[Rfam]
RNA sequence: GCAUAUUUCAUGUUUGUGCGUGAAUUUAACACGAGAUCUCGCACACCUUCUGUUGGGAAAGAUUCGCUUCGAUCUUUGUUUCAAUCAUGUUAGAUUCACGCACAAACUCGUGAUAUGCCU
Number, nucleotide and partner (000 for none) at each position: 001g118002c117003a116004u000005a114006u113007u112008u000009c000010a000011u000012g107013u106014u105015u104016g103017u102018g101019c100020g099021u098022g097023a096024a095025u094026u093027u000028a091029a090030c089031a000032c000033g086034a000035g000036a000037u000038c000039u000040c000041g000042c000043a077044c000045a000046c000047c000048u000049u000050c000051u000052g000053u000054u000055g000056g000057g000058a000059a000060a000061g000062a000063u000064u000065c000066g000067c000068u000069u000070c000071g000072a000073u000074c000075u000076u000077u043078g000079u000080u000081u000082c000083a000084a000085u000086c033087a000088u000089g030090u029091u028092a000093g026094a025095u024096u023097c022098a021099c020100g019101c018102a017103c016104a015105a014106a013107c012108u000109c000110g000111u000112g007113a006114u005115a000116u003117g002118c001119c000120u000
Rfam assigns this 120-nucleotide sequence from Striga asiatica to the family "MIR403 microRNA precursor family". The literature on the family includes a 2009 paper in BMC Genomics by Mica et al., "High throughput approaches reveal splicing of primary microRNA transcripts and tissue specific expression of mature microRNAs in Vitis vinifera". It scores 74 bits against the family's covariance model. The family has 13 seed sequences and 215 matches in Rfam 15.1. The source organism's lineage runs through Eukaryota, Mesangiospermae, lamiids, Orobanchaceae and Striga. Gene Ontology terms of the family: RISC complex and miRNA-mediated post-transcriptional gene silencing.